[Rfam]
RNA sequence: AGUGGGAGUAGAGGAGCAAAAACCAUCAGUACGUAUCCGUAUGGACGGUGAGAUCCGACGCGUUUACGGAAAGGGGAAUUUGCCGAAGCUAGGAAUGGCUCACGCAUUCACGGCUGGUCGUGCAUUGAAGAAAUGCAGGGCUGUCAUAUAGCUCGAGGCUAUAUGGAGGGCUAUCUCACGC
Number, nucleotide and partner (000 for none) at each position: 001a000002g000003u000004g000005g000006g176007a000008g174009u173010a172011g171012a000013g000014g000015a000016g083017c082018a081019a080020a079021a000022a000023c076024c075025a000026u000027c000028a000029g000030u000031a000032c068033g067034u066035a065036u000037c000038c062039g061040u000041a000042u000043g000044g000045a000046c000047g000048g000049u000050g000051a000052g000053a000054u000055c000056c000057g000058a000059c000060g000061c039062g038063u000064u000065u035066a034067c033068g032069g000070a000071a000072a000073g000074g000075g024076g023077a000078a000079u020080u019081u018082g017083c016084c000085g000086a000087a115088g114089c113090u112091a000092g000093g109094a108095a107096u106097g105098g000099c000100u000101c000102a000103c000104g000105c097106a096107u095108u094109c093110a000111c000112g090113g089114c088115u087116g142117g141118u140119c139120g000121u137122g136123c135124a134125u133126u132127g000128a000129a000130g000131a000132a126133a125134u124135g123136c122137a121138g000139g119140g118141c117142u116143g000144u166145c165146a164147u163148a162149u161150a160151g000152c000153u000154c000155g000156a000157g000158g000159c000160u150161a149162u148163a147164u146165g145166g144167a000168g000169g000170g000171c011172u010173a009174u008175c000176u006177c000178a000179c000180g000181c000